[Rfam]
RNA sequence: GGCCUAAUGCCACGUUGCUGGUAGCUAUGAUUGCAGUGACCAGUAAUGCUAUGAUUAGGCCUAGAGUAAAUCACUAGUUGAUAUUUCGCUGUUUGAUAGGAACCUGUGGAUCAGUUUGAAUUGUUUAUCCACGGAGCCGGUUUAUGCGAUUACAUUA
Numbered sequence: 001g002g003c004c005u006a007a008u009g010c011c012a013c014g015u016u017g018c019u020g021g022u023a024g025c026u027a028u029g030a031u032u033g034c035a036g037u038g039a040c041c042a043g044u045a046a047u048g049c050u051a052u053g054a055u056u057a058g059g060c061c062u063a064g065a066g067u068a069a070a071u072c073a074c075u076a077g078u079u080g081a082u083a084u085u086u087c088g089c090u091g092u093u094u095g096a097u098a099g100g101a102a103c104c105u106g107u108g109g110a111u112c113a114g115u116u117u118g119a120a121u122u123g124u125u126u127a128u129c130c131a132c133g134g135a136g137c138c139g140g141u142u143u144a145u146g147c148g149a150u151u152a153c154a155u156u157a
Stems, first nucleotide, its partner, number of pairs: 002060007009052001013048006020041003024034002086149004099138002104134003108130004
Record summary
The record is a 157-nucleotide sequence from Ananas comosus, which matches "Small nucleolar RNA snoR2/U65" in Rfam. By type it is an H/ACA-box small nucleolar RNA. Clan: SNORA65 clan. On this family, see Shaw et al., J Cell Sci 1998: "Localization and processing from a polycistronic precursor of novel snoRNAs in maize". It scores 118 bits against the family's covariance model.